[Rfam]
RNA sequence: CCUUCGGGGAGUAGCCGUCCGCGUAACCCAGCGGAGCCCGCGUCAACACACUUGGCCAGCGAUGGCCAUGGCGCCGGCAGCGGAUCGAUCGUUUCGAUCUGGAUUGGCGAGACCGACGAUACCUGCCUCUCGGGAACUGGGCCGACGGGGGAUGGGUGUCGUCGUGCGUUUCCGGCCCCGGAU
Number, nucleotide and partner (000 for none) at each position: 001c000002c000003u000004u000005c000006g000007g000008g000009g000010a000011g000012u000013a000014g000015c000016c000017g000018u000019c034020c033021g032022c000023g000024u000025a000026a000027c000028c000029c000030a000031g000032c021033g020034g019035a000036g078037c077038c076039c000040g074041c073042g072043u071044c070045a069046a000047c000048a000049c000050a000051c000052u000053u068054g067055g066056c065057c064058a000059g000060c000061g000062a000063u000064g057065g056066c055067c054068a053069u045070g044071g043072c042073g041074c040075c000076g038077g037078c036079a000080g000081c000082g000083g000084a183085u182086c000087g000088a000089u000090c000091g000092u000093u000094u000095c000096g000097a000098u000099c000100u000101g000102g000103a000104u000105u000106g000107g000108c000109g000110a000111g000112a000113c000114c000115g000116a000117c000118g000119a000120u000121a000122c000123c000124u000125g000126c000127c000128u000129c000130u000131c000132g000133g000134g000135a000136a000137c000138u000139g000140g000141g000142c000143c000144g000145a000146c000147g000148g000149g000150g000151g000152a000153u000154g000155g000156g000157u000158g000159u000160c000161g000162u000163c000164g000165u000166g000167c000168g000169u000170u000171u000172c000173c000174g000175g000176c000177c000178c000179c000180g000181g000182a085183u084